The family of this 200-nucleotide sequence from Ochotona princeps is "Small nucleolar RNA SNORA74".
RNA sequence: UCCAGUGGUUGUCAGCUAUCCAGGCUUGUAUGAUGCCUGGGAUGGUGUUACACUGCUGGAAGAGCAAGCACUGGCUCCACUGAGGUUUGGCCCCCUGCACUGUUUUGGUGCUGGGGUCAAGAACUCUGAGCAGUGUUUUGCACCUCUGAGAGUGGAAUGACUCCUCCUGUGGAGUUAGUCCUAGUCUGGGUGCAAACAGU
Numbered sequence: 001u002c003c004a005g006u007g008g009u010u011g012u013c014a015g016c017u018a019u020c021c022a023g024g025c026u027u028g029u030a031u032g033a034u035g036c037c038u039g040g041g042a043u044g045g046u047g048u049u050a051c052a053c054u055g056c057u058g059g060a061a062g063a064g065c066a067a068g069c070a071c072u073g074g075c076u077c078c079a080c081u082g083a084g085g086u087u088u089g090g091c092c093c094c095c096u097g098c099a100c101u102g103u104u105u106u107g108g109u110g111c112u113g114g115g116g117u118c119a120a121g122a123a124c125u126c127u128g129a130g131c132a133g134u135g136u137u138u139u140g141c142a143c144c145u146c147u148g149a150g151a152g153u154g155g156a157a158u159g160a161c162u163c164c165u166c167c168u169g170u171g172g173a174g175u176u177a178g179u180c181c182u183a184g185u186c187u188g189g190g191u192g193c194a195a196a197c198a199g200u
Base pairs, nucleotide, nucleotide: 001060002059003058004057005056006055007054008053009052011051012050015046016045017044018043019042020041021039022038023037024036025035068136069135070134071133072132073131075130076129082127084125085124086123087120088119089118090117091116092115094113098110099109100108101107138195139194140193141192142191143190144189145188154181155180156179158177159176160175161174162173163172164171

Background
Clan: SNORA74 clan. It is one of the family's seed sequences. Rfam classes the family as an H/ACA-box small nucleolar RNA. About the family: U19 belongs to the H/ACA class of snoRNAs. snoRNAs bind a number of proteins (including dyskerin, Gar1p and Nop10p in the case of the H/ACA class) to form snoRNP complexes. This class are thought to guide the sites of modification of uridines to pseudouridines by forming direct base pairing interactions with substrate RNAs. Targets may include ribosomal and spliceosomal RNAs but the exact functions of many snoRNAs, including U19, are not confirmed. Co-precipitation of U19 snoRNA with RNase MRP RNA suggests that U19 may be involved in pre-rRNA processing.